About this RNA:
This 106-nucleotide sequence from Gracilibacillus halotolerans belongs to the Rfam family "SAM riboswitch aptamer (S box leader)".

RNA sequence: UUCUUAUCUAGAGUGGUGGAGGGACUGGCCCUAUGAAACCCGGCAACCUUUAAGUAAAUACUUAAGAGGUGCUAAUUCCAGCAGGUAACAUCCUGACAGAUAAGAA
Numbered sequence: 001u002u003c004u005u006a007u008c009u010a011g012a013g014u015g016g017u018g019g020a021g022g023g024a025c026u027g028g029c030c031c032u033a034u035g036a037a038a039c040c041c042g043g044c045a046a047c048c049u050u051u052a053a054g055u056a057a058a059u060a061c062u063u064a065a066g067a068g069g070u071g072c073u074a075a076u077u078c079c080a081g082c083a084g085g086u087a088a089c090a091u092c093c094u095g096a097c098a099g100a101u102a103a104g105a106a
Stems, first nucleotide, its partner, number of pairs: 001106008013041001015040003021031003025081004042073004047069002049065002052062001077098001082095004
From the family's description: The SAM riboswitch is found upstream of a number of genes which code for proteins involved in methionine or cysteine biosynthesis in Gram-positive bacteria.